Rfam assigns this 99-nucleotide RNA sequence from Pipistrellus kuhlii to the family "mir-9261 microRNA precursor family".
RNA sequence: AACAAUUUGUCCCGAAUCCUGCGGCGUUUUAAAAAAGUCCCGAUUUUCUAAAAGUUCCGACUUUUUUAAAACGCUGCAGGAUUCGGGACAAAUUGUUAA
Numbered sequence: 001a002a003c004a005a006u007u008u009g010u011c012c013c014g015a016a017u018c019c020u021g022c023g024g025c026g027u028u029u030u031a032a033a034a035a036a037g038u039c040c041c042g043a044u045u046u047u048c049u050a051a052a053a054g055u056u057c058c059g060a061c062u063u064u065u066u067u068a069a070a071a072c073g074c075u076g077c078a079g080g081a082u083u084c085g086g087g088a089c090a091a092a093u094u095g096u097u098a099a
Stems, first nucleotide, its partner, number of pairs: 001097039
The organism belongs to Pipistrellus, within Eukaryota.